This 53-nucleotide RNA from Actinomycetospora cinnamomea belongs to the Rfam family "Guanidine-II riboswitch aptamer (mini-ykkC)". A search with the family's covariance model found it, with a score of 36 bits. The family has 72 seed sequences and 1,589 matches in Rfam 15.1.
RNA sequence: CGCCGAGGACGACCUCGAGGACGACUUCGAGGACGACCUCGAGGACGACCUCG
Dot-bracket structure: (..(((((....)))))..)...................(((((....)))))